[Rfam]
RNA sequence: GCGAAAGGACGACCUUUCCCCGUCAUGGGCGGCAUCCGGGACGGCCCGC
Dot-bracket structure: (.((((((....)))))).)................((((....)))).
Rfam assigns this 49-nucleotide RNA sequence from Paracoccus contaminans to the family "Guanidine-II riboswitch aptamer (mini-ykkC)".
It scores 36 bits against the family's covariance model.